[Rfam]
RNA sequence: GGAGAUCUUCAGGGCGGGGCGUAAUUCCCCACUGGCGGUACAGUCCGCGACCUGCUGCAUAUGCAGCGGCUGAUUCGGUGUGAUUCCGAAACCAACAGUAUAGUCUGGAUGAAAGAAGAUACAC
Numbered sequence: 001g002g003a004g005a006u007c008u009u010c011a012g013g014g015c016g017g018g019g020c021g022u023a024a025u026u027c028c029c030c031a032c033u034g035g036c037g038g039u040a041c042a043g044u045c046c047g048c049g050a051c052c053u054g055c056u057g058c059a060u061a062u063g064c065a066g067c068g069g070c071u072g073a074u075u076c077g078g079u080g081u082g083a084u085u086c087c088g089a090a091a092c093c094a095a096c097a098g099u100a101u102a103g104u105c106u107g108g109a110u111g112a113a114a115g116a117a118g119a120u121a122c123a124c
Base pairs, nucleotide, nucleotide: 005120006119007118008117009116010115017029018028019027031104032103033094034093035048036047037046038045043092044091052069053068074090075089076088077087078086096107097106098105
Notes: The record is a 124-nucleotide sequence from Blautia liquoris, which matches "FMN riboswitch aptamer (RFN element)" in Rfam. Taxonomically the source falls in Blautia (Bacteria, Bacillati, Bacillota, Lachnospiraceae). Pairs were carried over by alignment from the consensus structure, which is taken from published work. The match comes from Rfam's covariance-model search (110 bits).